[Rfam]
RNA sequence: AAACUCCGAAGAGCCGCGCGGUCCGCGCGGCACCGAAGAAGCAAUCCCGCGCUUGCGGGAGAAUCUUUCAGGUCUAUGACGGGGCGUGCAGA
Dot-bracket structure: (..(((((.....((((.........)))).(((((..(((...((((((....))))))....))))).)))......)))))..).....